[Rfam]
RNA sequence: GAAAAUUUUUUCGAUAUAGAACACUCAUGUCGAUAAAACGAUUUGAAUCAUUU
Numbered sequence: 001g002a003a004a005a006u007u008u009u010u011u012c013g014a015u016a017u018a019g020a021a022c023a024c025u026c027a028u029g030u031c032g033a034u035a036a037a038a039c040g041a042u043u044u045g046a047a048u049c050a051u052u053u
Stems, first nucleotide, its partner, number of pairs: 011033007
Rfam assigns this 53-nucleotide RNA sequence from Osyris alba to the family "Plastid-atpF group II-D1 intron". Lineage of the source: Eukaryota > Streptophytina > Embryophyta > eudicotyledons > Osyris. Pairs were carried over by alignment from the consensus structure, which was predicted with LocARNA.